A member of the RNA family "Small nucleolar RNA SNORA33" from Cricetulus griseus, 133 nucleotides long. The organism belongs to Cricetulus, within Eukaryota. Rfam's curators write: ACA33 is a member of the H/ACA class of snoRNA that guide the sites of modification of uridines to pseudouridines. Rfam classes the family as an H/ACA-box small nucleolar RNA.
RNA sequence: AAGCCAGCCAAUUAAUCUGCUUAUCUGAAUAUGUUUCUGCAAAAAUCUAGAAAGAGCUGGCAAUAGUGUUGUCAAAUAAUGAGCCUUCAGGACAAGAGACUGUCUUUAAGAUCCCUAAAAAAGGACUAUAAUA
Numbered sequence: 001a002a003g004c005c006a007g008c009c010a011a012u013u014a015a016u017c018u019g020c021u022u023a024u025c026u027g028a029a030u031a032u033g034u035u036u037c038u039g040c041a042a043a044a045a046u047c048u049a050g051a052a053a054g055a056g057c058u059g060g061c062a063a064u065a066g067u068g069u070u071g072u073c074a075a076a077u078a079a080u081g082a083g084c085c086u087u088c089a090g091g092a093c094a095a096g097a098g099a100c101u102g103u104c105u106u107u108a109a110g111a112u113c114c115c116u117a118a119a120a121a122a123g124g125a126c127u128a129u130a131a132u133a
Base pairs, nucleotide, nucleotide: 003061004060005059006058007057016043018041019040020039071126072125073124083112085110086109087108089106091104092103093102